[Rfam]
RNA sequence: UCUCCAGUGAUGUUGUACAUACUUUCGUUCUUCUGAGUCAACUGAAGCCACACUUAAUGUCCUGAGCAGA
Numbered sequence: 001u002c003u004c005c006a007g008u009g010a011u012g013u014u015g016u017a018c019a020u021a022c023u024u025u026c027g028u029u030c031u032u033c034u035g036a037g038u039c040a041a042c043u044g045a046a047g048c049c050a051c052a053c054u055u056a057a058u059g060u061c062c063u064g065a066g067c068a069g070a
Base pairs, nucleotide, nucleotide: 001070002069003068005066

Rfam assigns this 70-nucleotide RNA from Parambassis ranga to the family "Small nucleolar RNA SNORD59". The organism belongs to Parambassis, within Eukaryota. The base pairs follow the family's consensus structure, which was predicted with ILM. Its family is annotated with nucleolus and RNA processing in the Gene Ontology. The family's RNA type in Rfam is C/D-box small nucleolar RNA.